[Rfam]
RNA: c-di-AMP riboswitch aptamer (ydaO/yuaA leader)
RNA sequence: GCCGAGUCUCCCGCUGCGCGCGGGAGAGCGGGGGACCCACGGAUGUUCCCACGGGGCGAAUCGCGAUCUGAUGAUCGCGUAGCGCACAGCGCGAGCCCGACAGCUAACCCCGCAGGC
Number, nucleotide and partner (000 for none) at each position: 001g117002c116003c115004g000005a000006g000007u027008c026009u025010c024011c023012c022013g021014c020015u000016g000017c000018g000019c000020g014021c013022g012023g011024g010025a009026g008027a007028g113029c112030g111031g110032g109033g108034g000035a000036c000037c000038c053039a000040c000041g000042g000043a000044u000045g000046u000047u000048c000049c000050c000051a000052c000053g038054g098055g097056g096057c000058g000059a000060a000061u000062c079063g078064c077065g076066a000067u000068c000069u000070g000071a000072u000073g000074a000075u000076c065077g064078c063079g062080u000081a000082g092083c091084g090085c089086a000087c000088a000089g085090c084091g083092c082093g000094a000095g000096c056097c055098c054099g000100a000101c000102a000103g000104c000105u000106a000107a000108c033109c032110c031111c030112g029113c028114a000115g003116g002117c001